Source information
Shown here is a 189-nucleotide RNA sequence from Caldimonas caldifontis, a member of the family "Manganese Mn2+ riboswitch aptamer (yybP-ykoY)". On this family, see Argaman et al., Curr Biol 2001: "Novel small RNA-encoding genes in the intergenic regions of Escherichia coli". Rfam links the family to the GO term manganese ion binding.

[Rfam]
RNA sequence: CGCCCAGUCAUUGGGGAGUAGCUUCCCUCCUUCGCAGCAUGGCUGCAACGAGAGGGCCCUGUGUCAACAGACUUGCCCGCCUGCGGGCAUGGCACAGGGGGUCUUACGGACUUGGCGAGACCUUUGACCGUGCCUGCCCGCGAGCCGGGGGCAGGUGCGGUCAUGGGUGUCAACGCCGGCCGGAGUACC
Numbered sequence: 001c002g003c004c005c006a007g008u009c010a011u012u013g014g015g016g017a018g019u020a021g022c023u024u025c026c027c028u029c030c031u032u033c034g035c036a037g038c039a040u041g042g043c044u045g046c047a048a049c050g051a052g053a054g055g056g057c058c059c060u061g062u063g064u065c066a067a068c069a070g071a072c073u074u075g076c077c078c079g080c081c082u083g084c085g086g087g088c089a090u091g092g093c094a095c096a097g098g099g100g101g102u103c104u105u106a107c108g109g110a111c112u113u114g115g116c117g118a119g120a121c122c123u124u125u126g127a128c129c130g131u132g133c134c135u136g137c138c139c140g141c142g143a144g145c146c147g148g149g150g151g152c153a154g155g156u157g158c159g160g161u162c163a164u165g166g167g168u169g170u171c172a173a174c175g176c177c178g179g180c181c182g183g184a185g186u187a188c189c
Stems, first nucleotide, its partner, number of pairs: 026055003057099010074089005100189003104185002
The pairing is the family consensus, mapped onto this sequence. Rfam 15.1 lists 1,126 matches to the family in 1,062 species. This RNA was originally discovered in E. coli during a large scale screen and was named SraF. The family was later found to exist upstream of related families of protein genes in many bacteria, including the the yybP and ykoK genes in B. subtilis.